[Rfam]
RNA sequence: GCAAUAGAAUAGGUUUCUCAAGGGUGGUCGGCACAUCCCCAAACAGAAAGGGGGUGGUGCUGAAUGACAGUUUUUGAAUCACUAAUGAUGGCGAUUGCUUUUGGAAGUUUAAUCGUAACCAUUCUGUCAUUUAACCAUAUAGAAGACUUCCAUCAGUGGGGGCCUUAUCCCCACUGAUGGUUAGUCGCACUUAUCACGCAGAGCCUGACUGACUUUUCUAAGAGCUGAAGCUCUAAGAAAAGAUCUUGUCGGACCUUUACAGGCAGUUGAUCCCUAUAUUUUCUUUGGUUACUCAGAAUUUUUUAGGUUGGGGAUCUUACUGCCUGUUAAGGUGGGGAAAAAAAUAAUCCACCCUUGAGUUAGCGGCUCAGGUGGAUUAUCCCUGUAAGAAGCCGGUCCCCCUUAAAGGGAGCCGUCUAUUGCUGGACUGAACAUGUUCCCGCAUGUUCG
Numbered sequence: 001g002c003a004a005u006a007g008a009a010u011a012g013g014u015u016u017c018u019c020a021a022g023g024g025u026g027g028u029c030g031g032c033a034c035a036u037c038c039c040c041a042a043a044c045a046g047a048a049a050g051g052g053g054g055u056g057g058u059g060c061u062g063a064a065u066g067a068c069a070g071u072u073u074u075u076g077a078a079u080c081a082c083u084a085a086u087g088a089u090g091g092c093g094a095u096u097g098c099u100u101u102u103g104g105a106a107g108u109u110u111a112a113u114c115g116u117a118a119c120c121a122u123u124c125u126g127u128c129a130u131u132u133a134a135c136c137a138u139a140u141a142g143a144a145g146a147c148u149u150c151c152a153u154c155a156g157u158g159g160g161g162g163c164c165u166u167a168u169c170c171c172c173a174c175u176g177a178u179g180g181u182u183a184g185u186c187g188c189a190c191u192u193a194u195c196a197c198g199c200a201g202a203g204c205c206u207g208a209c210u211g212a213c214u215u216u217u218c219u220a221a222g223a224g225c226u227g228a229a230g231c232u233c234u235a236a237g238a239a240a241a242g243a244u245c246u247u248g249u250c251g252g253a254c255c256u257u258u259a260c261a262g263g264c265a266g267u268u269g270a271u272c273c274c275u276a277u278a279u280u281u282u283c284u285u286u287g288g289u290u291a292c293u294c295a296g297a298a299u300u301u302u303u304u305a306g307g308u309u310g311g312g313g314a315u316c317u318u319a320c321u322g323c324c325u326g327u328u329a330a331g332g333u334g335g336g337g338a339a340a341a342a343a344a345u346a347a348u349c350c351a352c353c354c355u356u357g358a359g360u361u362a363g364c365g366g367c368u369c370a371g372g373u374g375g376a377u378u379a380u381c382c383c384u385g386u387a388a389g390a391a392g393c394c395g396g397u398c399c400c401c402c403u404u405a406a407a408g409g410g411a412g413c414c415g416u417c418u419a420u421u422g423c424u425g426g427a428c429u430g431a432a433c434a435u436g437u438u439c440c441c442g443c444a445u446g447u448u449c450g
Base pairs, nucleotide, nucleotide: 001423002422003421004420005419007417008416015396016395017359018358019357020356021355022354023353024352026349027348028347034056035055037054038053039052040051066324068322069321070320071319079094080093103316104315369385370384371383397411398410399409400408429450430449431448432447433446434445435444436443437442
The record is a 450-nucleotide sequence from Mesobacillus persicus, which matches "BsrG" in Rfam. Its family is annotated with toxin activity and autolysis in the Gene Ontology. bsrE, bsrG and bsrH pair through intermolecular interactions with antisense sRNAs. They form type I toxin/antitoxin system that includes an mRNA encoding for a short, toxic peptide (bsrE, bsrG and bsrH) and an antitoxin that is comprised of an antisense RNA. bsrG encodes a 39-amino-acid toxin, and the 180 nucleotide antisense sRNA called SR4 acts as the antitoxin (they overlap by 123 nucleotides). SR4 interaction with the 3'UTR of bsrG RNA promotes bsrG degradation and inhibits its translation. The match comes from Rfam's covariance-model search (101 bits). Taxonomically the source falls in Mesobacillus (Bacteria, Bacillota, Bacilli, Caryophanales). The family has 6 seed sequences and 614 matches in Rfam 15.1. Pairs were carried over by alignment from the consensus structure, which was predicted with WAR.